[Rfam]
RNA sequence: CUUUAACCCCGAUAGAAAUGAAAAUCCAAUGCGCUAGCAUUGAUUGUAAUGGAUAGCGGGAAAAUGG
Numbered sequence: 001c002u003u004u005a006a007c008c009c010c011g012a013u014a015g016a017a018a019u020g021a022a023a024a025u026c027c028a029a030u031g032c033g034c035u036a037g038c039a040u041u042g043a044u045u046g047u048a049a050u051g052g053a054u055a056g057c058g059g060g061a062a063a064a065u066g067g
Stems, first nucleotide, its partner, number of pairs: 009059003013055002018050002023045004028041005
Rfam assigns this 67-nucleotide RNA sequence from Flavobacteria bacterium BAL38 to the family "Flavo-1 RNA".
Pairs were carried over by alignment from the consensus structure, which is taken from published work.
The source organism's lineage runs through Bacteria, Pseudomonadati, Bacteroidota, Flavobacteriia and Flavobacteriales.
The family's RNA type in Rfam is small RNA.